[Rfam]
Description
Rfam assigns this 71-nucleotide RNA from Medicago truncatula to the family "MIR2629 microRNA precursor family".
RNA sequence: UACCGAGGUUUUCCUCGGCAGUUAACUGCAGCCGGUUUUGAAUUCCUCGACAGUUAAUUGCCGAGGGGACA
Numbered sequence: 001u002a003c004c005g006a007g008g009u010u011u012u013c014c015u016c017g018g019c020a021g022u023u024a025a026c027u028g029c030a031g032c033c034g035g036u037u038u039u040g041a042a043u044u045c046c047u048c049g050a051c052a053g054u055u056a057a058u059u060g061c062c063g064a065g066g067g068g069a070c071a
Stems, first nucleotide, its partner, number of pairs: 012067002015064014

It scores 62 bits against the family's covariance model.